Rfam assigns this 125-nucleotide sequence from Erwinia mallotivora to the family "EFASI RNA". It scores 68 bits against the family's covariance model. It is annotated as a small RNA.
RNA sequence: UCGUUCAGGUACUGAGGCGUUCGUCUUAAUCAGACGAACGGGGAGCAACAAACCGUCGCACAGAGUGCUAAACGGGCUCCUGCAACAACUCAACUCAGCCUCGCCAUGCUACACAGUACCUGACG
Numbered sequence: 001u002c003g004u005u006c007a008g009g010u011a012c013u014g015a016g017g018c019g020u021u022c023g024u025c026u027u028a029a030u031c032a033g034a035c036g037a038a039c040g041g042g043g044a045g046c047a048a049c050a051a052a053c054c055g056u057c058g059c060a061c062a063g064a065g066u067g068c069u070a071a072a073c074g075g076g077c078u079c080c081u082g083c084a085a086c087a088a089c090u091c092a093a094c095u096c097a098g099c100c101u102c103g104c105c106a107u108g109c110u111a112c113a114c115a116g117u118a119c120c121u122g123a124c125g
Stems, first nucleotide, its partner, number of pairs: 002125004007121008018040009041081004053075004058068004